This 73-nucleotide sequence from Clostridium sp. CAG:307 belongs to the Rfam family "Fluoride riboswitch aptamer (crcB RNA motif)". A reference for the family is Ren et al. (2012), "Fluoride ion encapsulation by Mg2+ ions and phosphates in a fluoride riboswitch", Nature. Taxonomically the source falls in Clostridium (Bacteria, Bacillati, Eubacteriales, Clostridiaceae). A search with the family's covariance model found it, with a score of 45 bits.
[Rfam]
RNA sequence: UAAUAACCAGGAAAUGAUGUUCUUCCUUGUUUUAUAACAAAACCGCAAUUAUGCUGAUGACGUCUAUAGUUUU
Numbered sequence: 001u002a003a004u005a006a007c008c009a010g011g012a013a014a015u016g017a018u019g020u021u022c023u024u025c026c027u028u029g030u031u032u033u034a035u036a037a038c039a040a041a042a043c044c045g046c047a048a049u050u051a052u053g054c055u056g057a058u059g060a061c062g063u064c065u066a067u068a069g070u071u072u073u
Stems, first nucleotide, its partner, number of pairs: 010026004016064006045054003